The record is a 204-nucleotide RNA from Streptomyces sp. SID8111, which matches "Streptomyces sRNA 4677" in Rfam.
Nucleotides: 204
Stems, first nucleotide, its partner, number of pairs: 004061004066081006097117002141175005147169002151164004186202005
Number, partner (000 for none) and nucleotide at each position: 001000u002000g003000g004061g005060c006059c007058g008000c009000g010000c011000g012000g013000c014000u015000u016000c017000c018000a019000a020000a021000g022000a023000a024000c025000c026000g027000g028000g029000g030000g031000a032000a033000a034000g035000a036000a037000c038000u039000a040000c041000c042000c043000g044000c045000c046000c047000a048000c049000c050000c051000a052000c053000c054000c055000u056000c057000c058007c059006g060005g061004c062000u063000g064000c065000g066081u067080c068079a069078c070077c071076c072000g073000u074000c075000c076071g077070g078069g079068u080067g081066a082000c083000c084000g085000g086000c087000u088000u089000g090000c091000c092000u093000g094000g095000g096000u097117g098116g099000g100000u101000c102000a103000c104000g105000g106000a107000c108000c109000g110000u111000u112000a113000c114000g115000u116098u117097c118000g119000c120000g121000a122000c123000g124000a125000c126000c127000a128000c129000a130000g131000u132000a133000a134000u135000c136000a137000g138000a139000g140000c141175g142174g143173c144172c145171c146000c147169c148168g149000g150000c151164g152163g153162g154161a155000c156000u157000g158000g159000c160000a161154u162153c163152c164151c165000g166000a167000u168148c169147g170000a171145g172144g173143g174142c175141c176000u177000c178000a179000c180000c181000a182000a183000g184000c185000a186202g187201g188200a189199a190198g191000a192000c193000a194000a195000c196000c197000c198190c199189u200188u201187c202186c203000c204000c
Rfam classes the family as a small RNA.
About the family: Located in the intergenic region between anti-sigma factor SCO4677 gene and a putative regulatory protein gene SCO4676. scr4677 expression requires the SCO4677 activity and scr4677 sRNA itself seem to affect the levels of the SCO4676-associated transcripts.
The base pairs follow the family's consensus structure.